[Rfam]
RNA sequence: UUACCAGAUCCUGGAACCCUAUCGAUAUUGUCUCUGCUGUGUAAAUAGCUGUGAGUAGUGCAAUAUUGCUUAUAGGGUUUUAGUGUUUGGGAAA
Numbered sequence: 001u002u003a004c005c006a007g008a009u010c011c012u013g014g015a016a017c018c019c020u021a022u023c024g025a026u027a028u029u030g031u032c033u034c035u036g037c038u039g040u041g042u043a044a045a046u047a048g049c050u051g052u053g054a055g056u057a058g059u060g061c062a063a064u065a066u067u068g069c070u071u072a073u074a075g076g077g078u079u080u081u082a083g084u085g086u087u088u089g090g091g092a093a094a
Base pairs, nucleotide, nucleotide: 013081014080015079016078017077018076019075020074021073022072023068024067025066026065027064028063029062030061031060034058035057036056037055038054

mir-454 microRNA precursor family: a 94-nucleotide sequence from Ornithorhynchus anatinus. The base pairs follow the family's consensus structure, which was predicted with RNAalifold. Its family is annotated with miRNA-mediated post-transcriptional gene silencing and RISC complex in the Gene Ontology. NCBI's taxonomy places the organism under Eukaryota, Vertebrata, Mammalia, Prototheria, Ornithorhynchus.